This 382-nucleotide RNA from Staphylococcus simulans belongs to the Rfam family "Bacterial RNase P class B". The family is grouped with related families in Rfam's "RNaseP clan". Lineage of the source: Bacteria > Bacillati > Bacillota > Caryophanales > Staphylococcus. From the family's description: Ribonuclease P (RNase P) is a ubiquitous endoribonuclease, found in archaea, bacteria and eukarya as well as chloroplasts and mitochondria. Its best characterised activity is the generation of mature 5'-ends of tRNAs by cleaving the 5'-leader elements of precursor-tRNAs. Cellular RNase Ps are ribonucleoproteins.
RNA sequence: UAUUUCGGGUAAUCGCUAUAGCAAUAUAGAGGAAAGUCCAUGCUCACACAAUCUGAGAUGAUUGUAGUGUUCGUGCUUGAUGAAACAAUAAGUCAAGGCUAAUAGACGGCAGUGAAAUAAUCUAAGUCAUUCAGAUAUGAUUAAAGUAGCUUGAAAGUGCCACAGUGACGGAGCCUUUACAGAAAUGUAAAGGGUGGAACGCGGUAAACCCCUCGAGUGAGCAAUCCAAAUUUGGUAGGAGCACUUAUUUAGCGGAAUUCAACGUAUAAAUGAGGGAAUGAGUGUGCGUAAAUACUUAUUCCAGACAGAUGGUUACCACCGGCGUACGAGUGACUACUAGUGCACGUUAUCAGUACUAAGGUACAGAACAUGGCUUAUAGAA
Numbered sequence: 001u002a003u004u005u006c007g008g009g010u011a012a013u014c015g016c017u018a019u020a021g022c023a024a025u026a027u028a029g030a031g032g033a034a035a036g037u038c039c040a041u042g043c044u045c046a047c048a049c050a051a052u053c054u055g056a057g058a059u060g061a062u063u064g065u066a067g068u069g070u071u072c073g074u075g076c077u078u079g080a081u082g083a084a085a086c087a088a089u090a091a092g093u094c095a096a097g098g099c100u101a102a103u104a105g106a107c108g109g110c111a112g113u114g115a116a117a118u119a120a121u122c123u124a125a126g127u128c129a130u131u132c133a134g135a136u137a138u139g140a141u142u143a144a145a146g147u148a149g150c151u152u153g154a155a156a157g158u159g160c161c162a163c164a165g166u167g168a169c170g171g172a173g174c175c176u177u178u179a180c181a182g183a184a185a186u187g188u189a190a191a192g193g194g195u196g197g198a199a200c201g202c203g204g205u206a207a208a209c210c211c212c213u214c215g216a217g218u219g220a221g222c223a224a225u226c227c228a229a230a231u232u233u234g235g236u237a238g239g240a241g242c243a244c245u246u247a248u249u250u251a252g253c254g255g256a257a258u259u260c261a262a263c264g265u266a267u268a269a270a271u272g273a274g275g276g277a278a279u280g281a282g283u284g285u286g287c288g289u290a291a292a293u294a295c296u297u298a299u300u301c302c303a304g305a306c307a308g309a310u311g312g313u314u315a316c317c318a319c320c321g322g323c324g325u326a327c328g329a330g331u332g333a334c335u336a337c338u339a340g341u342g343c344a345c346g347u348u349a350u351c352a353g354u355a356c357u358a359a360g361g362u363a364c365a366g367a368a369c370a371u372g373g374c375u376u377a378u379a380g381a382a
Stems, first nucleotide, its partner, number of pairs: 004382003007378001008317007016029005034376003038373005043221005048065006071216003075212001076097006098107001099105002108211002111151003119142004126136003157209002159205003174193008225240003244274007275302011319361002324356004